[Rfam]
RNA sequence: AACCACACUAUCGAUAAAUGGAUUCACCCGUGAGAUGACGUGGUUGUUCCAUCUAGGAUGAGGACGUGGCAUCCUGUUAAUUUUGUGUGAUGGCUGGUAAUAUGAUGCCAUGUCCUCGUCCUAUGUGAAAUAACCACAUCAUCUCGCAAGUAAAUCCAUUCAUCGAUAGUGUGGUU
Numbered sequence: 001a002a003c004c005a006c007a008c009u010a011u012c013g014a015u016a017a018a019u020g021g022a023u024u025c026a027c028c029c030g031u032g033a034g035a036u037g038a039c040g041u042g043g044u045u046g047u048u049c050c051a052u053c054u055a056g057g058a059u060g061a062g063g064a065c066g067u068g069g070c071a072u073c074c075u076g077u078u079a080a081u082u083u084u085g086u087g088u089g090a091u092g093g094c095u096g097g098u099a100a101u102a103u104g105a106u107g108c109c110a111u112g113u114c115c116u117c118g119u120c121c122u123a124u125g126u127g128a129a130a131u132a133a134c135c136a137c138a139u140c141a142u143c144u145c146g147c148a149a150g151u152a153a154a155u156c157c158a159u160u161c162a163u164c165g166a167u168a169g170u171g172u173g174g175u176u
Base pairs, nucleotide, nucleotide: 001176002175003174004173005172006171007170009168010167011166012165013164014163015162017160018159019158021156022155023154024153026151027150030147031146032145033144035142036141037140038139041136042135043134044133045132046131047130048129051126052125054123055122057120058119063114064113065112069108070107071106072105073104075102076101077100078099079098